Shown here is a 145-nucleotide RNA sequence from Staphylococcus sp. HMSC071G07, a member of the family "Ribosomal protein L10 leader". The family's RNA type in Rfam is cis-regulatory leader. Rfam links the family to the GO term regulation of gene expression. The family's consensus secondary structure was predicted with CMfinder. This family is a putative r-protein leader autoregulatory structure found in B. subtilis and other low-GC Gram-positive bacteria.
RNA sequence: GUUAGUGUGAUUAUUUUACCUAAGACAGUAGGAGUUAGAAAUAACUUAAAAUUUAUCCUACCGAGGCUAAAAUUGACUUGAACGUGAUUAAUGAAAGUUUCAAGCACUUUUUGCCGUGGGUAGAAAGUGCUUUUUUUAUUGAGUU
Number, nucleotide and partner (000 for none) at each position: 001g000002u000003u000004a000005g000006u000007g000008u000009g000010a000011u000012u000013a000014u000015u000016u000017u000018a000019c000020c000021u000022a000023a000024g000025a000026c000027a000028g061029u060030a059031g058032g057033a056034g045035u044036u043037a000038g000039a000040a000041a000042u000043a036044a035045c034046u000047u000048a000049a000050a000051a000052u000053u000054u000055a000056u033057c032058c031059u030060a029061c028062c000063g000064a000065g000066g000067c000068u000069a000070a000071a000072a000073u000074u000075g000076a000077c000078u000079u000080g000081a000082a000083c000084g000085u000086g000087a000088u000089u000090a000091a000092u000093g000094a000095a000096a000097g000098u000099u000100u000101c000102a000103a000104g130105c129106a128107c127108u126109u125110u124111u123112u122113g121114c000115c000116g000117u000118g000119g000120g000121u113122a112123g111124a110125a109126a108127g107128u106129g105130c104131u000132u000133u000134u000135u000136u000137u000138a000139u000140u000141g000142a000143g000144u000145u000